[Rfam]
RNA sequence: GUGAGAACCCUUUGAAUCAAUUAGUGUAGUGAUUCAAAGGGUUCUCGCCAUC
Numbered sequence: 001g002u003g004a005g006a007a008c009c010c011u012u013u014g015a016a017u018c019a020a021u022u023a024g025u026g027u028a029g030u031g032a033u034u035c036a037a038a039g040g041g042u043u044c045u046c047g048c049c050a051u052c
Stems, first nucleotide, its partner, number of pairs: 001048019